Rfam assigns this 73-nucleotide sequence from Candidatus Methanomethylophilus sp. 1R26 to the family "tRNA". The literature on the family includes a 1993 paper in Trends Biochem Sci by Hou, "The tertiary structure of tRNA and the development of the genetic code". Rfam classes the family as a transfer RNA.
RNA sequence: GGGCAGGUAGAUCAGUUGGAAGAUCGCUACAUUGGCAUUGUAGAGGUCGUGAGUUCGAAUCUCGCCCUGUCCA
Numbered sequence: 001g002g003g004c005a006g007g008u009a010g011a012u013c014a015g016u017u018g019g020a021a022g023a024u025c026g027c028u029a030c031a032u033u034g035g036c037a038u039u040g041u042a043g044a045g046g047u048c049g050u051g052a053g054u055u056c057g058a059a060u061c062u063c064g065c066c067c068u069g070u071c072c073a
Stems, first nucleotide, its partner, number of pairs: 001072007010025004027043005049065005